The family of this 51-nucleotide RNA sequence from Sphingomonas sp. Leaf42 is "chrB-b RNA". The match comes from Rfam's covariance-model search (54 bits). The family's RNA type in Rfam is cis-regulatory element.

RNA sequence: ACGGGCCAACAGCGGACGCCCGUUCAGGCGGUAUUCCCGCCCAAGCUCCGC
Dot-bracket structure: ((((((.....[[[[[.))))))...(((((.....))))).....]]]]]